Rfam assigns this 74-nucleotide RNA sequence from Ruoffia halotolerans to the family "Fluoride riboswitch aptamer (crcB RNA motif)". The family's consensus secondary structure is taken from published work. Rfam links the family to the GO terms positive regulation of gene expression and response to fluoride.
Nucleotides: 074
Base pairs, nucleotide, nucleotide: 010026011025012024013023016065017064018063019062045055046054047053
Number, partner (000 for none) and nucleotide at each position: 001000a002000u003000a004000a005000u006000a007000u008000u009000g010026g011025g012024g013023a014000a015000u016065g017064a018063a019062g020000g021000g022000c023013u024012c025011c026010c027000u028000u029000g030000c031000u032000u033000a034000c035000g036000g037000g038000c039000a040000a041000a042000a043000c044000c045055g046054u047053c048000u049000u050000a051000a052000a053047g054046a055045c056000u057000a058000a059000u060000g061000a062019c063018u064017u065016c066000u067000g068000c069000a070000u071000g072000c073000u074000u